[Rfam]
RNA sequence: UUUACUUUUUAAAUAAAUCGCACAUAUACCGGCACAUAUCCCGGGGUGCCCCAUGCUGUGUUCUUGUCAAAGAGAACAGGCAUAGAGGGUCGGGUUUAUGGGGUAUAUGGAGGCAUAAC
Dot-bracket structure: ......................((((((((....((((.((((....((((...................................))))))))..)))).))))))))..........
A member of the RNA family "t44 RNA" from Parendozoicomonas haliclonae, 119 nucleotides long.
Lineage of the source: Bacteria > Pseudomonadota > Gammaproteobacteria > Endozoicomonadaceae > Parendozoicomonas.
Pairs were carried over by alignment from the consensus structure, which was predicted with LocARNA.
Rfam classes the family as a small RNA.
It scores 76 bits against the family's covariance model.
From the family's description: This family consists of a number of bacterial RNA genes of between 135 and 170 bases in length. The t44 gene has been identified in several species of enteric bacteria but homologs have also been identified in Pseudomonas and Coxiella species. The t44 gene is found between the map and rpsB genes in all species in the full alignment apart from Shigella flexneri.